[Rfam]
The record is a 113-nucleotide RNA from Gloeomargarita lithophora, which matches "Guanidine-I riboswitch aptamer" in Rfam. From the family's description: This family represents a conserved RNA structure found upstream of the ykkC and yxkD genes in Bacillus subtilis and related genes in other bacteria. The function of this family is unclear although it has been suggested that it may function to switch on efflux pumps and detoxification systems in response to harmful environmental molecules. A search with the family's covariance model found it, with a score of 79 bits. The organism belongs to Gloeomargarita lithophora, within Bacteria.
RNA sequence: CUGAAGAGCUUCUAGGGUUCCGGUGGCAAACUUAAUUGCUGUGGCUGGUCCGAGAGAAGCAGGCCGUUGCCCCACGGGUUGCGGUUACACGGCGGGAUAAAAGCCCGGGAGGU
Numbered sequence: 001c002u003g004a005a006g007a008g009c010u011u012c013u014a015g016g017g018u019u020c021c022g023g024u025g026g027c028a029a030a031c032u033u034a035a036u037u038g039c040u041g042u043g044g045c046u047g048g049u050c051c052g053a054g055a056g057a058a059g060c061a062g063g064c065c066g067u068u069g070c071c072c073c074a075c076g077g078g079u080u081g082c083g084g085u086u087a088c089a090c091g092g093c094g095g096g097a098u099a100a101a102a103g104c105c106c107g108g109g110a111g112g113u
Base pairs, nucleotide, nucleotide: 008060009059010058011057012056015051016050020048021047022045023042024041025040026039027038028037062086063085064084065083066082067081069079088108090111094106095105096104